[Rfam]
The family of this 226-nucleotide part of an RNA from Acidihalobacter ferrooxydans is "Bacterial large subunit ribosomal RNA".
RNA sequence: GACUUACUUUCAGUGGCGAGGUUAACCGUUAGGGGAGCCGUAGGGAAACCGAGUCUUAAUAGGGCGUUUAGUCGCUGGGAGUAGACCCGAAGCCGGGCGAUCUAUCCAUGGCCAGGUUGAAGGUGGGGUAAUUCCCACUGGAGGACCGAACCCACGUCUGUUGAAAAAGACGGGGAUGAGCUGUGGAUCGGAGUGAAAGGCUAAUCAAGCUCGGCGAUAGCUGGUU
Numbered sequence: 001g002a003c004u005u006a007c008u009u010u011c012a013g014u015g016g017c018g019a020g021g022u023u024a025a026c027c028g029u030u031a032g033g034g035g036a037g038c039c040g041u042a043g044g045g046a047a048a049c050c051g052a053g054u055c056u057u058a059a060u061a062g063g064g065c066g067u068u069u070a071g072u073c074g075c076u077g078g079g080a081g082u083a084g085a086c087c088c089g090a091a092g093c094c095g096g097g098c099g100a101u102c103u104a105u106c107c108a109u110g111g112c113c114a115g116g117u118u119g120a121a122g123g124u125g126g127g128g129u130a131a132u133u134c135c136c137a138c139u140g141g142a143g144g145a146c147c148g149a150a151c152c153c154a155c156g157u158c159u160g161u162u163g164a165a166a167a168a169g170a171c172g173g174g175g176a177u178g179a180g181c182u183g184u185g186g187a188u189c190g191g192a193g194u195g196a197a198a199g200g201c202u203a204a205u206c207a208a209g210c211u212c213g214g215c216g217a218u219a220g221c222u223g224g225u226u
Stems, first nucleotide, its partner, number of pairs: 005083013020039004026033002043050002053065004086224002089221001093214006102190001104188009113178001115147004122139007151175003155172005192202003

Lineage of the source: Bacteria > Pseudomonadati > Pseudomonadota > Ectothiorhodospiraceae > Acidihalobacter.